Annotation
raiA-hairpin RNA: a 46-nucleotide sequence from Streptomyces purpureus.
RNA sequence: CGCCAGUCCGAGACUCCGGUAAUCACCGGAGUCUGGUGCAAAGGGA
Numbered sequence: 001c002g003c004c005a006g007u008c009c010g011a012g013a014c015u016c017c018g019g020u021a022a023u024c025a026c027c028g029g030a031g032u033c034u035g036g037u038g039c040a041a042a043g044g045g046a
Stems, first nucleotide, its partner, number of pairs: 012033008
Rfam classes the family as a small RNA.